[Rfam]
RNA: TPP riboswitch aptamer (THI element)
Organism: Cellulophaga lytica
RNA sequence: UGUAAACUUUAGGGGUGUUCUUUUUAAGAACUGAGAAAUACCCUUUGAACCUGAUGCUGUUAGUACAGCCGAAGGGAAAAGUUGAAUUCUUUUU
Numbered sequence: 001u002g003u004a005a006a007c008u009u010u011a012g013g014g015g016u017g018u019u020c021u022u023u024u025u026a027a028g029a030a031c032u033g034a035g036a037a038a039u040a041c042c043c044u045u046u047g048a049a050c051c052u053g054a055u056g057c058u059g060u061u062a063g064u065a066c067a068g069c070c071g072a073a074g075g076g077a078a079a080a081g082u083u084g085a086a087u088u089c090u091u092u093u094u
Base pairs, nucleotide, nucleotide: 006082007081008080009079010078011044012043013042014041016038017031018030019029020028021027050075051074052073056069057068058067059066